[Rfam]
RNA sequence: GUCGGGAGGGUGGCUAAUACAAAACCGCGCAAGCGGAAAUACGCCCACCGGCUAGUGCGGCUUCUAACCUCCCGACACCCUUGC
Dot-bracket structure: (((((((((..(((((........(((......)))...)).)))..(((.......))).......)))))))))........
RNA: sRNA-Xcc1
Organism: Noviluteimonas dokdonensis